The record is a 407-nucleotide RNA sequence from Natrarchaeobius halalkaliphilus, which matches "Archaeal RNase P" in Rfam. By type it is a ribozyme. The organism belongs to Natrarchaeobius, within Archaea. Ribonuclease P (RNase P) is a ubiquitous endoribonuclease, found in archaea, bacteria and eukarya as well as chloroplasts and mitochondria. Its best characterised activity is the generation of mature 5'-ends of tRNAs by cleaving the 5'-leader elements of precursor-tRNAs. Cellular RNase Ps are ribonucleoproteins. RNA from bacterial RNase Ps retains its catalytic activity in the absence of the protein subunit, i.e. it is a ribozyme. Isolated eukaryotic and archaeal RNase P RNA has not been shown to retain its catalytic function, but is still essential for the catalytic activity of the holoenzyme. Although the archaeal and eukaryotic holoenzymes have a much greater protein content than the bacterial ones, the RNA cores from all the three lineages are homologous -- helices corresponding to P1, P2, P3, P4, and P10/11 are common to all cellular RNase P RNAs. Yet, there is considerable sequence variation, particularly among the eukaryotic RNAs. For this family Rfam cites "Ribonuclease P: unity and diversity in a tRNA processing ribozyme" (Frank and Pace, Annu Rev Biochem, 1998). The match comes from Rfam's covariance-model search (109 bits).
RNA sequence: GAGUCGUUCGGCGGACGCGAGGAAAGUCCCCCCACCCGUUCGGGCGGGUGACCGGGCGCAAGCCCGGAGCGCGAGACCGCUGGCUCUGGAACAGAAACGACACGUCUCGGCCCGACCGAUGAUGCGCGCGAACCCGACCGCGAGGAAGGGGAGAUAACCCGCAGAGGGUGCGACUCGACGCGCCGCUGGUGCGAGAGUCGCCAUCCGCGCGGUCGACGACCGUGGUUCGAUUCCACGGGGGACGCUCGACGUCCCCGACCGUGGGGAGACGGCCGAGGAUCGAUGGAACGGCGAAUCCUCACCGGUGCAAGUCCGUGCCGUGGUAGCCCGAACGUCCCGCGGCAUCCCCGCGGACGGCGCGGACGCUCAGCCGAAUGCCGGGACGAACAGAAGGGGGCUUACUCCUC
Numbered sequence: 001g002a003g004u005c006g007u008u009c010g011g012c013g014g015a016c017g018c019g020a021g022g023a024a025a026g027u028c029c030c031c032c033c034a035c036c037c038g039u040u041c042g043g044g045c046g047g048g049u050g051a052c053c054g055g056g057c058g059c060a061a062g063c064c065c066g067g068a069g070c071g072c073g074a075g076a077c078c079g080c081u082g083g084c085u086c087u088g089g090a091a092c093a094g095a096a097a098c099g100a101c102a103c104g105u106c107u108c109g110g111c112c113c114g115a116c117c118g119a120u121g122a123u124g125c126g127c128g129c130g131a132a133c134c135c136g137a138c139c140g141c142g143a144g145g146a147a148g149g150g151g152a153g154a155u156a157a158c159c160c161g162c163a164g165a166g167g168g169u170g171c172g173a174c175u176c177g178a179c180g181c182g183c184c185g186c187u188g189g190u191g192c193g194a195g196a197g198u199c200g201c202c203a204u205c206c207g208c209g210c211g212g213u214c215g216a217c218g219a220c221c222g223u224g225g226u227u228c229g230a231u232u233c234c235a236c237g238g239g240g241g242a243c244g245c246u247c248g249a250c251g252u253c254c255c256c257g258a259c260c261g262u263g264g265g266g267a268g269a270c271g272g273c274c275g276a277g278g279a280u281c282g283a284u285g286g287a288a289c290g291g292c293g294a295a296u297c298c299u300c301a302c303c304g305g306u307g308c309a310a311g312u313c314c315g316u317g318c319c320g321u322g323g324u325a326g327c328c329c330g331a332a333c334g335u336c337c338c339g340c341g342g343c344a345u346c347c348c349c350g351c352g353g354a355c356g357g358c359g360c361g362g363a364c365g366c367u368c369a370g371c372c373g374a375a376u377g378c379c380g381g382g383a384c385g386a387a388c389a390g391a392a393g394g395g396g397g398c399u400u401a402c403u404c405c406u407c
Stems, first nucleotide, its partner, number of pairs: 001407003006402001007382006024400003028397005033307004047303005052067005068081004082298002087294001089292001103282002106277007124262002311364011